U1 spliceosomal RNA: a 164-nucleotide RNA. By type it is a spliceosomal small nuclear RNA. Rfam's curators put it in the seed alignment. The family's consensus secondary structure is taken from published work.
RNA sequence: AUACUUAACUGGCAAGGGAAAUAACAUGAUCAUUAAAGGUGGAUUUUUCAGGGUGAGGUUUGUCUCUUGCAUUGUGGAUGUGCUGACCCCUGUGGUUUUCUACAAAUGUGGGAAACUUAAUUGCAUAAUUUGUGGUAGUGGGGACUAUGUUGGUUCUCUCCCCU
Numbered sequence: 001a002u003a004c005u006u007a008a009c010u011g012g013c014a015a016g017g018g019a020a021a022u023a024a025c026a027u028g029a030u031c032a033u034u035a036a037a038g039g040u041g042g043a044u045u046u047u048u049c050a051g052g053g054u055g056a057g058g059u060u061u062g063u064c065u066c067u068u069g070c071a072u073u074g075u076g077g078a079u080g081u082g083c084u085g086a087c088c089c090c091u092g093u094g095g096u097u098u099u100c101u102a103c104a105a106a107u108g109u110g111g112g113a114a115a116c117u118u119a120a121u122u123g124c125a126u127a128a129u130u131u132g133u134g135g136u137a138g139u140g141g142g143g144a145c146u147a148u149g150u151u152g153g154u155u156c157u158c159u160c161c162c163c164u
Base pairs, nucleotide, nucleotide: 012124013123014122015121016049017048018047019046020045021044025041026040027039050091051090052089053088055087057084058083059082061080062079063078064077065076093119094118095117096115097113098112100111101110140163141162142161143160144159147154148153